Overview:
Shown here is a 74-nucleotide sequence from Streptococcus mutans, a member of the family "L17 ribosomal protein downstream element". Rfam classes the family as a cis-regulatory element. NCBI's taxonomy places the organism under Bacteria, Bacillati, Bacilli, Streptococcaceae, Streptococcus mutans.
RNA sequence: UGAGUGUUAUGAUGUUGGAAUUAUAAUAAUUCUUAGUCUAGCUCUGGUCUACCACUAGGAGAGGCUCCUAGUGG
Dot-bracket structure: .((((.....(((...((((((.....))))))..)))..)))).......(((((((((.....)))))))))